[Rfam]
RNA: mir-1285 microRNA precursor family
RNA sequence: AUAAGGUCCCACUAUGUUGCCCAGGCUGGUCUCAAACUCAAGACCAAGCCUGGGCAAGAUAGUGGGACCUCAU
Numbered sequence: 001a002u003a004a005g006g007u008c009c010c011a012c013u014a015u016g017u018u019g020c021c022c023a024g025g026c027u028g029g030u031c032u033c034a035a036a037c038u039c040a041a042g043a044c045c046a047a048g049c050c051u052g053g054g055c056a057a058g059a060u061a062g063u064g065g066g067a068c069c070u071c072a073u
Stems, first nucleotide, its partner, number of pairs: 007067008019055007032048001